[Rfam]
RNA sequence: GGGCUUGUAACUCAGUCGGUUAGAGUGCCUGACUCAUAAUCAGUAAGUCCCAGGUUCGAGUCCUGGCUGGCCCA
Numbered sequence: 001g002g003g004c005u006u007g008u009a010a011c012u013c014a015g016u017c018g019g020u021u022a023g024a025g026u027g028c029c030u031g032a033c034u035c036a037u038a039a040u041c042a043g044u045a046a047g048u049c050c051c052a053g054g055u056u057c058g059a060g061u062c063c064u065g066g067c068u069g070g071c072c073c074a
Stems, first nucleotide, its partner, number of pairs: 001073005007067001010026004029043004050066005
RNA: tRNA
Organism: Arsenicibacter rosenii